Rfam assigns this 104-nucleotide RNA sequence from Vibrio furnissii to the family "gltS RNA". Taxonomically the source falls in Vibrio furnissii (Bacteria, Pseudomonadota, Gammaproteobacteria, Vibrio).

[Rfam]
RNA sequence: UAUCACUAAGGAUUGUUUUUCUCACAAAAUUUUUCCUGUGAGAGACGGAAAGGAAGCGAACCCGCCACCACUGGCAGGUUUAGAUUCAUAACAAUAAGGACAGG
Numbered sequence: 001u002a003u004c005a006c007u008a009a010g011g012a013u014u015g016u017u018u019u020u021c022u023c024a025c026a027a028a029a030u031u032u033u034u035c036c037u038g039u040g041a042g043a044g045a046c047g048g049a050a051a052g053g054a055a056g057c058g059a060a061c062c063c064g065c066c067a068c069c070a071c072u073g074g075c076a077g078g079u080u081u082a083g084a085u086u087c088a089u090a091a092c093a094a095u096a097a098g099g100a101c102a103g104g
Stems, first nucleotide, its partner, number of pairs: 020043007060079003064075003
Dot-bracket structure: ...................(((((((..........)))))))................(((.(((......))).))).........................